[Rfam]
RNA sequence: UGAGGUCUGUGAUGUGUUUUUAUUUGCCUACAUUGUCUGAUAAUCUUUUUUAGAUUUUGAUGUGUUUAAAUAACCUGAGACCUCU
Number, nucleotide and partner (000 for none) at each position: 001u000002g084003a000004g082005g081006u080007c079008u000009g000010u000011g000012a000013u000014g000015u000016g000017u000018u000019u000020u000021u000022a000023u000024u000025u000026g000027c000028c000029u000030a000031c000032a000033u000034u000035g000036u000037c000038u000039g000040a000041u000042a000043a000044u000045c000046u000047u000048u000049u000050u000051u000052a000053g000054a000055u000056u000057u000058u000059g000060a000061u000062g000063u000064g000065u000066u000067u000068a000069a000070a000071u000072a000073a000074c000075c000076u000077g000078a000079g007080a006081c005082c004083u000084c002085u000